The family of this 131-nucleotide RNA from Heterocephalus glaber is "Small nucleolar RNA SNORA40". It is annotated as an H/ACA-box small nucleolar RNA. Lineage of the source: Eukaryota > Deuterostomia > Eutheria > Boreoeutheria > Heterocephalus. The snoRNA ACA 40 belongs to the H/ACA family of snoRNAs and guides the pseudouridylation of 28S rRNA subunit at position U4565. NB This family has a high threshold value to exclude a large number of closely related sequences that do not appear to have conserved H and ACA boxes, and may be pseudogenes. A search with the family's covariance model found it, with a score of 86 bits. For this family Rfam cites "Mapping to nucleotide resolution of pseudouridine residues in large subunit ribosomal RNAs from representative eukaryotes, prokaryotes, archaebacteria, mitochondria and chloroplasts" (Ofengand and Bakin, J Mol Biol, 1997).
RNA sequence: GGUAUUUGUGUGUCUGUUUUUGUCUAACUUAUGGACUAACACUUACGGUCAGGUGCAAAACAUAAAUCCUCUUAUUGCAACCCAGAACGUAUUGUUCAGUACGGGUUUUGAUACCUAUAGGAAGGAAUAUU
Numbered sequence: 001g002g003u004a005u006u007u008g009u010g011u012g013u014c015u016g017u018u019u020u021u022g023u024c025u026a027a028c029u030u031a032u033g034g035a036c037u038a039a040c041a042c043u044u045a046c047g048g049u050c051a052g053g054u055g056c057a058a059a060a061c062a063u064a065a066a067u068c069c070u071c072u073u074a075u076u077g078c079a080a081c082c083c084a085g086a087a088c089g090u091a092u093u094g095u096u097c098a099g100u101a102c103g104g105g106u107u108u109u110g111a112u113a114c115c116u117a118u119a120g121g122a123a124g125g126a127a128u129a130u131u
Stems, first nucleotide, its partner, number of pairs: 002056007011047001016042002019039002022036002028033001066128002069125002072122002075120003083110006090103001092101001